[Rfam]
The family of this 126-nucleotide sequence from Halopseudomonas phragmitis is "Pseudomon-1/ErsA RNA". Lineage of the source: Bacteria > Pseudomonadati > Pseudomonadales > Pseudomonadaceae > Halopseudomonas.
RNA sequence: AUGCUCCUUAGAUGUGAUUUAGUGUUGGCAGAAAUACCGGGCGACUCUCCCUUUCCUAGCACAGCCCGGUCGUUAAACCCCGAGCCUUCCCUCCCCAUAGAAGCUCGGGGUUUUUUUUGCCUGCCG
Number, nucleotide and partner (000 for none) at each position: 001a000002u000003g000004c000005u000006c000007c000008u000009u000010a000011g000012a000013u000014g000015u000016g000017a000018u000019u000020u000021a000022g000023u000024g000025u000026u000027g000028g000029c000030a000031g000032a000033a000034a000035u000036a070037c069038c068039g067040g066041g065042c064043g000044a000045c000046u000047c000048u000049c000050c000051c000052u000053u000054u000055c000056c000057u000058a000059g000060c000061a000062c000063a000064g042065c041066c040067c039068g038069g037070u036071c000072g000073u000074u000075a114076a113077a112078c110079c109080c108081c107082g106083a105084g104085c103086c000087u101088u000089c000090c000091c000092u000093c000094c000095c000096c000097a000098u000099a000100g000101a087102a000103g085104c084105u083106c082107g081108g080109g079110g078111u000112u077113u076114u075115u000116u000117u000118u000119g000120c000121c000122u000123g000124c000125c000126g000